The family of this 104-nucleotide sequence from Azospirillum thermophilum is "traJ-II RNA". The match comes from Rfam's covariance-model search (68 bits). Rfam classes the family as a cis-regulatory element.

[Rfam]
RNA sequence: UGGCAAGAUGUGUGUUGUAGGCCUACACGGCGACGCCGUGCAGUCCCACAACACCCGCGCUUACUCGCCCUGCGGGCUCGACGCUGAUCUUGCUCUGCGAGGCA
Number, nucleotide and partner (000 for none) at each position: 001u000002g094003g093004c092005a091006a090007g089008a088009u087010g000011u000012g054013u053014g052015u051016u050017g049018u000019a000020g046021g045022c000023c000024u042025a000026c040027a039028c038029g000030g036031c000032g000033a000034c000035g000036c030037c000038g028039u027040g026041c000042a024043g000044u000045c021046c020047c000048a000049c017050a016051a015052c014053a013054c012055c000056c000057g000058c000059g084060c083061u000062u000063a000064c000065u000066c000067g077068c076069c075070c074071u000072g000073c000074g070075g069076g068077c067078u000079c000080g000081a000082c000083g060084c059085u000086g000087a009088u008089c007090u006091u005092g004093c003094u002095c000096u000097g000098c000099g000100a000101g000102g000103c000104a000